[Rfam]
A member of the RNA family "Group II catalytic intron D1-D4-3", 171 nucleotides long. Its family is annotated with Group II intron splicing in the Gene Ontology. The sequence is in the family's curated seed alignment. Rfam describes the family as follows. Group II introns are found in rRNA, tRNA and mRNA of organelles in fungi, plants and protists, and also in mRNA in bacteria.
Nucleotides: 171
Stems, first nucleotide, its partner, number of pairs: 001016006028171002036163001040158006046149005062144005071136003075132007082110004088103003
Number, partner (000 for none) and nucleotide at each position: 001016u002015c003014c004013a005012u006011c007000g008000u009000g010000a011006g012005g013004u014003g015002g016001a017000a018000u019000c020000u021000g022000a023000a024000g025000g026000a027000g028171g029170c030000u031000g032000u033000a034000a035000g036163c037000a038000a039000a040158u041157c042156u043155c044154u045153g046149g047148u048147c049146u050145g051000a052000c053000a054000a055000a056000c057000a058000g059000a060000a061000a062144u063143c064142a065141c066140a067000u068000c069000a070000g071136g072135u073134u074000g075132c076131a077130g078129u079128u080127a081126a082110g083109g084108a085107u086000a087000a088103g089102g090101u091000g092000g093000c094000u095000a096000u097000a098000c099000a100000a101090a102089c103088u104000a105000a106000a107085g108084u109083c110082c111000a112000a113000u114000a115000a116000c117000u118000a119000c120000u121000c122000g123000g124000a125000a126081u127080u128079a129078g130077c131076u132075g133000u134073a135072a136071u137000a138000a139000a140066u141065g142064u143063g144062g145050c146049a147048g148047a149046u150000a151000u152000a153045u154044g155043g156042a157041g158040a159000g160000a161000a162000a163036g164000a165000a166000g167000u168000g169000u170029g171028u